[Rfam]
RNA sequence: AUACGUGUAGGGUGGAGAUGCACAACCGUCGGACCGUGUAGCACUAGGCUUAUAUUUAGACGCUUCAUCUCGUCCACAGUCGCCGGUUGAUUCCUCCUCCUGACCUUAGCUUUUGUUGAAGCGGUGCCUUUGUCACCGCCGCUAACAAGCAGGACGCGUCCGUCGCGACUCCCGCCCAAUUGGCAGGUUUUGCUGGACACUGGAGUGGCCAACCACUCUUGACGCACCUGACACCGACCGUGAGAAGUCGUGUGUGCCGAACGCCGUUUCCGGCAGCCCGGAAACCGA
Numbered sequence: 001a002u003a004c005g006u007g008u009a010g011g012g013u014g015g016a017g018a019u020g021c022a023c024a025a026c027c028g029u030c031g032g033a034c035c036g037u038g039u040a041g042c043a044c045u046a047g048g049c050u051u052a053u054a055u056u057u058a059g060a061c062g063c064u065u066c067a068u069c070u071c072g073u074c075c076a077c078a079g080u081c082g083c084c085g086g087u088u089g090a091u092u093c094c095u096c097c098u099c100c101u102g103a104c105c106u107u108a109g110c111u112u113u114u115g116u117u118g119a120a121g122c123g124g125u126g127c128c129u130u131u132g133u134c135a136c137c138g139c140c141g142c143u144a145a146c147a148a149g150c151a152g153g154a155c156g157c158g159u160c161c162g163u164c165g166c167g168a169c170u171c172c173c174g175c176c177c178a179a180u181u182g183g184c185a186g187g188u189u190u191u192g193c194u195g196g197a198c199a200c201u202g203g204a205g206u207g208g209c210c211a212a213c214c215a216c217u218c219u220u221g222a223c224g225c226a227c228c229u230g231a232c233a234c235c236g237a238c239c240g241u242g243a244g245a246a247g248u249c250g251u252g253u254g255u256g257c258c259g260a261a262c263g264c265c266g267u268u269u270c271c272g273g274c275a276g277c278c279c280g281g282a283a284a285c286c287g288a
Stems, first nucleotide, its partner, number of pairs: 014097004023089006030082003036077003040050003059074004098154005157224004162198003165193004172186001174184003202219007231255004235250004266285007
Shown here is a 288-nucleotide RNA sequence, a member of the family "rne-II RNA".
A search with the family's covariance model found it, with a score of 251 bits.
The family's consensus secondary structure is taken from published work.